Shown here is an 82-nucleotide RNA from Teladorsagia circumcincta, a member of the family "mir-228 microRNA precursor family". Gene Ontology terms of the family: RISC complex and miRNA-mediated post-transcriptional gene silencing. A search with the family's covariance model found it, with a score of 64 bits. The family's consensus secondary structure was predicted with RNAalifold. The family is grouped with related families in Rfam's "mir-182 clan".
RNA sequence: GGGGGUCCCGAAAUGGCACUGCAUGAAUUCACGGUUGUUGUUCGGGCCGUGCAUCCAGUGGUUCCAUACCGGGUCGCCGCUG
Numbered sequence: 001g002g003g004g005g006u007c008c009c010g011a012a013a014u015g016g017c018a019c020u021g022c023a024u025g026a027a028u029u030c031a032c033g034g035u036u037g038u039u040g041u042u043c044g045g046g047c048c049g050u051g052c053a054u055c056c057a058g059u060g061g062u063u064c065c066a067u068a069c070c071g072g073g074u075c076g077c078c079g080c081u082g
Stems, first nucleotide, its partner, number of pairs: 007073004013067004018062005025055002028053001030051001032049003036044002